[Rfam]
RNA sequence: UGGGCGUGUGGUGUGACCUUCCUGAGCCUACAUUCCCUCACCUGGAAAUGAGCAGUUACUGAUGUCACA
Numbered sequence: 001u002g003g004g005c006g007u008g009u010g011g012u013g014u015g016a017c018c019u020u021c022c023u024g025a026g027c028c029u030a031c032a033u034u035c036c037c038u039c040a041c042c043u044g045g046a047a048a049u050g051a052g053c054a055g056u057u058a059c060u061g062a063u064g065u066c067a068c069a
Stems, first nucleotide, its partner, number of pairs: 003066005013059005023054002029051001031050004036045002

Shown here is a 69-nucleotide sequence from Callithrix jacchus, a member of the family "Small nucleolar RNA ZL116". On this family, see Kishore et al., Genome Biol 2013: "Insights into snoRNA biogenesis and processing from PAR-CLIP of snoRNA core proteins and small RNA sequencing". It is one of the family's seed sequences. Rfam 15.1 lists 20 matches to the family in 20 species. NCBI's taxonomy places the organism under Eukaryota, Chordata, Cebidae, Callitrichinae, Callithrix. Its family is annotated with RNA processing and nucleolus in the Gene Ontology. The base pairs follow the family's consensus structure, which was predicted with RNAfold. The family's RNA type in Rfam is C/D-box small nucleolar RNA.